[Rfam]
RNA sequence: CCACUUGAUGAUGAUGAGAUCGUCGAGUACAUACUCACAGGUCUGGAAUCUUAUUUCAAUCCAGUUGUUUCUGCUAUGCUGGUCAGGACAGAAGGGAUCACGGUAGGUGAGCUAUACUCACAGCUGCUCGCCUUCGAGA
Numbered sequence: 001c002c003a004c005u006u007g008a009u010g011a012u013g014a015u016g017a018g019a020u021c022g023u024c025g026a027g028u029a030c031a032u033a034c035u036c037a038c039a040g041g042u043c044u045g046g047a048a049u050c051u052u053a054u055u056u057c058a059a060u061c062c063a064g065u066u067g068u069u070u071c072u073g074c075u076a077u078g079c080u081g082g083u084c085a086g087g088a089c090a091g092a093a094g095g096g097a098u099c100a101c102g103g104u105a106g107g108u109g110a111g112c113u114a115u116a117c118u119c120a121c122a123g124c125u126g127c128u129c130g131c132c133u134u135c136g137a138g139a
Stems, first nucleotide, its partner, number of pairs: 004138005088108002092104001
Rfam assigns this 139-nucleotide sequence from Panicum hallii to the family "Small nucleolar RNA Z247". A search with the family's covariance model found it, with a score of 57 bits. The family's RNA type in Rfam is C/D-box small nucleolar RNA. The literature on the family includes a 2003 paper in Nucleic Acids Res by Chen et al., "The high diversity of snoRNAs in plants: identification and comparative study of 120 snoRNA genes from Oryza sativa".